[Rfam]
RNA sequence: GCCGGUGCUUGAUGAUAGAUCCGGGGAAGGAGUUUCCCGAACCGGGCGGUGCCGAUGCAUCUCAAGGCGCGCGGCCGUUUACAUA
Numbered sequence: 001g002c003c004g005g006u007g008c009u010u011g012a013u014g015a016u017a018g019a020u021c022c023g024g025g026g027a028a029g030g031a032g033u034u035u036c037c038c039g040a041a042c043c044g045g046g047c048g049g050u051g052c053c054g055a056u057g058c059a060u061c062u063c064a065a066g067g068c069g070c071g072c073g074g075c076c077g078u079u080u081a082c083a084u085a
Stems, first nucleotide, its partner, number of pairs: 022044003045079006053071002056069003
Dot-bracket structure: .....................(((.................)))((((((..((.(((........)))))..))))))......

The record is an 85-nucleotide RNA, which matches "COG2827 RNA" in Rfam.
The sequence is in the family's curated seed alignment.
The family's consensus secondary structure is taken from published work.